[Rfam]
RNA sequence: UUAAAUACGAAGAAGGAUCGAAGUAGCUAUGCAAAUCACUAUUUUAAGAGAACUGACGGGUGGUGCAAGUCAGUAUAUAUUUGCUGGUGAAUUACAAUCUGGAGUAAUUCUCUUCAUUUAGAGAUCGGUGGAAACAUCGUUAACAAUUCCAAGUGGCUGGUAAUCCAGCAACAAGGGUGGUACCGCGAAUACAACUCGUCCCUUCC
Numbered sequence: 001u002u003a004a005a006u007a008c009g010a011a012g013a014a015g016g017a018u019c020g021a022a023g024u025a026g027c028u029a030u031g032c033a034a035a036u037c038a039c040u041a042u043u044u045u046a047a048g049a050g051a052a053c054u055g056a057c058g059g060g061u062g063g064u065g066c067a068a069g070u071c072a073g074u075a076u077a078u079a080u081u082u083g084c085u086g087g088u089g090a091a092u093u094a095c096a097a098u099c100u101g102g103a104g105u106a107a108u109u110c111u112c113u114u115c116a117u118u119u120a121g122a123g124a125u126c127g128g129u130g131g132a133a134a135c136a137u138c139g140u141u142a143a144c145a146a147u148u149c150c151a152a153g154u155g156g157c158u159g160g161u162a163a164u165c166c167a168g169c170a171a172c173a174a175g176g177g178u179g180g181u182a183c184c185g186c187g188a189a190u191a192c193a194a195c196u197c198g199u200c201c202c203u204u205c206c
Base pairs, nucleotide, nucleotide: 007105008104015100016099017098018097026088027087028086031084032083040077041076042075052074053073054072055071056070057069109124110123111122112121126139127138128137156169157168158167159166160165174203175202176201177200185199186198187197188196
RNA: T-box leader
Organism: Oceanobacillus iheyensis